Shown here is a 125-nucleotide sequence from Brassica carinata, a member of the family "MIR9563 microRNA precursor family". Gene Ontology terms of the family: miRNA-mediated post-transcriptional gene silencing and RISC complex.
[Rfam]
RNA sequence: GGAAUAUAAUAACCUUUCUUUUAACUUUUAACUAAAAAAAUUAAGAACCGACUCUUAAAACUCUUAUUUAAAAACCAGUUCUUAGCUUUUUUAGUUAAAAGUUAAGAGACGGAUUCUUAUAUUCC
Number, nucleotide and partner (000 for none) at each position: 001g125002g124003a123004a122005u121006a120007u119008a118009a117010u000011a115012a114013c000014c112015u111016u000017u109018c108019u107020u106021u105022u104023a103024a102025c101026u100027u099028u098029u097030a096031a095032c094033u093034a092035a091036a090037a089038a088039a087040a000041u085042u084043a083044a082045g081046a080047a079048c000049c000050g000051a000052c000053u000054c000055u000056u000057a000058a000059a000060a000061c000062u000063c000064u000065u000066a000067u000068u000069u000070a000071a000072a000073a000074a000075c000076c000077a000078g000079u047080u046081c045082u044083u043084a042085g041086c000087u039088u038089u037090u036091u035092u034093a033094g032095u031096u030097a029098a028099a027100a026101g025102u024103u023104a022105a021106g020107a019108g018109a017110c000111g015112g014113a000114u012115u011116c000117u009118u008119a007120u006121a005122u004123u003124c002125c001
The source organism's lineage runs through Eukaryota, Embryophyta, Gunneridae, Pentapetalae and Brassica. It scores 107 bits against the family's covariance model.